[Rfam]
RNA sequence: AGCCGUGCGGUGAGCACAUAGCGAACUAUUCUUUCGCCUUUUACUAAAGAAUACCGUGUGCUUGCCGCUCAAAGCGGCAUACGCCUAUUUUUGGAGGUCUGUUCUUUCGAGAGUUG
Numbered sequence: 001a002g003c004c005g006u007g008c009g010g011u012g013a014g015c016a017c018a019u020a021g022c023g024a025a026c027u028a029u030u031c032u033u034u035c036g037c038c039u040u041u042u043a044c045u046a047a048a049g050a051a052u053a054c055c056g057u058g059u060g061c062u063u064g065c066c067g068c069u070c071a072a073a074g075c076g077g078c079a080u081a082c083g084c085c086u087a088u089u090u091u092u093g094g095a096g097g098u099c100u101g102u103u104c105u106u107u108c109g110a111g112a113g114u115u116g
Stems, first nucleotide, its partner, number of pairs: 003077004008067011027053008097115001099113002102110001